Source information:
A member of the RNA family "THF (Tetrahydrofolate) riboswitch aptamer" from bacterium 1XD42-54, 107 nucleotides long.

RNA sequence: AGCGAAGUAGGAAUUUGCGCGUUAAGUUGUCAGCGGCUGGGGAGUCGCCCUGAACCGAAAAACCAUGUUUAAAAUGUGUUUGCGAUGCAUUUUCCGCACCCGUUGCU
Numbered sequence: 001a002g003c004g005a006a007g008u009a010g011g012a013a014u015u016u017g018c019g020c021g022u023u024a025a026g027u028u029g030u031c032a033g034c035g036g037c038u039g040g041g042g043a044g045u046c047g048c049c050c051u052g053a054a055c056c057g058a059a060a061a062a063c064c065a066u067g068u069u070u071a072a073a074a075u076g077u078g079u080u081u082g083c084g085a086u087g088c089a090u091u092u093u094c095c096g097c098a099c100c101c102g103u104u105g106c107u
Stems, first nucleotide, its partner, number of pairs: 001107005010095004016089004020084003026056001030053004035049002040101003044097001060081004

The family's consensus secondary structure is taken from published work. The family has 101 seed sequences and 747 matches in Rfam 15.1.